[Rfam]
RNA: pan motif
RNA sequence: UGGGCGGUAUCCAAUUGGAACUGCACCGCAACAACAAUUAAAGCGGAUCUGCCUUGAUCCAAUUAAGGACUAGGACAGAGGG
Number, nucleotide and partner (000 for none) at each position: 001u028002g027003g026004g024005c023006g022007g021008u020009a000010u019011c018012c000013a000014a000015u000016u000017g000018g011019a010020a008021c007022u006023g005024c004025a000026c003027c002028g001029c000030a000031a000032c000033a000034a000035c000036a000037a000038u000039u000040a000041a000042a000043g000044c000045g000046g000047a000048u000049c078050u077051g076052c074053c073054u072055u000056g070057a000058u069059c068060c067061a000062a000063u000064u000065a000066a000067g060068g059069a058070c056071u000072a054073g053074g052075a000076c051077a050078g049079a000080g000081g000082g000